Shown here is a 382-nucleotide RNA sequence from Isoptericola sediminis, a member of the family "Bacterial RNase P class A". The family's RNA type in Rfam is ribozyme. Taxonomically the source falls in Isoptericola (Bacteria, Bacillati, Actinomycetota, Promicromonosporaceae). Rfam's curators write: Ribonuclease P (RNase P) is a ubiquitous endoribonuclease, found in archaea, bacteria and eukarya as well as chloroplasts and mitochondria.
RNA sequence: CGAGUCGGUCGGACGGUCGCGUCGGCGGUGCUCAGGCGCCGUCGCCGAGGAACGUCCGGGCUCCGAAGGGCAAGGUGGUGGCUAACGGCCACCCGGGGUGACCCGCGGGACAGUGCCACAGAAAACAGACCGCCGCCGGGAGACCGGCGGUAAGGGUGAAACGGUGGUGUAAGAGACCACCAGCGUGUCCGGUGACGGGCACGGCUCGGUAAACCCCACCUGGAGCAAGGUCGGACAGGGGACGUUCGAGGGCUGCCCGCCCGAUGUCCCCGGGUAGACCGCUGGAGGCCUGUGGCGACGCAGGUCCUAGAUGGAUGACCGUCGCCCGUGCGGGGGUGACCCGGCACGGGAACAGAACCCGGCGUACAGACCGGCUCGUCCG
Numbered sequence: 001c002g003a004g005u006c007g008g009u010c011g012g013a014c015g016g017u018c019g020c021g022u023c024g025g026c027g028g029u030g031c032u033c034a035g036g037c038g039c040c041g042u043c044g045c046c047g048a049g050g051a052a053c054g055u056c057c058g059g060g061c062u063c064c065g066a067a068g069g070g071c072a073a074g075g076u077g078g079u080g081g082c083u084a085a086c087g088g089c090c091a092c093c094c095g096g097g098g099u100g101a102c103c104c105g106c107g108g109g110a111c112a113g114u115g116c117c118a119c120a121g122a123a124a125a126c127a128g129a130c131c132g133c134c135g136c137c138g139g140g141a142g143a144c145c146g147g148c149g150g151u152a153a154g155g156g157u158g159a160a161a162c163g164g165u166g167g168u169g170u171a172a173g174a175g176a177c178c179a180c181c182a183g184c185g186u187g188u189c190c191g192g193u194g195a196c197g198g199g200c201a202c203g204g205c206u207c208g209g210u211a212a213a214c215c216c217c218a219c220c221u222g223g224a225g226c227a228a229g230g231u232c233g234g235a236c237a238g239g240g241g242a243c244g245u246u247c248g249a250g251g252g253c254u255g256c257c258c259g260c261c262c263g264a265u266g267u268c269c270c271c272g273g274g275u276a277g278a279c280c281g282c283u284g285g286a287g288g289c290c291u292g293u294g295g296c297g298a299c300g301c302a303g304g305u306c307c308u309a310g311a312u313g314g315a316u317g318a319c320c321g322u323c324g325c326c327c328g329u330g331c332g333g334g335g336g337u338g339a340c341c342c343g344g345c346a347c348g349g350g351a352a353c354a355g356a357a358c359c360c361g362g363c364g365u366a367c368a369g370a371c372c373g374g375c376u377c378g379u380c381c382g
Stems, first nucleotide, its partner, number of pairs: 001378010011367001012323007020047002023044008052365003056362005061225004068258004073221005078092005093107001094105004108216002113214002115210003130155002132151008163181006183205001184203008229280004238271006250262004287306008